[Rfam]
RNA sequence: CGUAAGAGAAGUUCGACUAAGACCGCCACGUCCUGCGGCAACGUCGAACUACCCUACAUCCUGUAGG
Numbered sequence: 001c002g003u004a005a006g007a008g009a010a011g012u013u014c015g016a017c018u019a020a021g022a023c024c025g026c027c028a029c030g031u032c033c034u035g036c037g038g039c040a041a042c043g044u045c046g047a048a049c050u051a052c053c054c055u056a057c058a059u060c061c062u063g064u065a066g067g
Base pairs, nucleotide, nucleotide: 011049012048013047014046015045016044017043025039026038027037029035053067054066055065056064057063
RNA: Bacillaceae-1 RNA